[Rfam]
RNA sequence: UGCCCCCGCCGCGACUGGCGAGGGUGGGAUCGACCACCGGGGAGCGGCGAGCAGGUCCCGUCAGCGCACCGCCCGCCUGGGUGCCGGGA
Numbered sequence: 001u002g003c004c005c006c007c008g009c010c011g012c013g014a015c016u017g018g019c020g021a022g023g024g025u026g027g028g029a030u031c032g033a034c035c036a037c038c039g040g041g042g043a044g045c046g047g048c049g050a051g052c053a054g055g056u057c058c059c060g061u062c063a064g065c066g067c068a069c070c071g072c073c074c075g076c077c078u079g080g081g082u083g084c085c086g087g088g089a
Base pairs, nucleotide, nucleotide: 005051007049008048009047010046011045012044015041016040017077018076019075020074024037025036026035027034066084067083068082069081070080
ZMP/ZTP riboswitch aptamer (pfl RNA motif): an 89-nucleotide RNA sequence from Actinotalea fermentans. It scores 48 bits against the family's covariance model. The base pairs follow the family's consensus structure, which is taken from published work. Lineage of the source: Bacteria > Actinomycetota > Actinomycetes > Cellulomonadaceae > Actinotalea.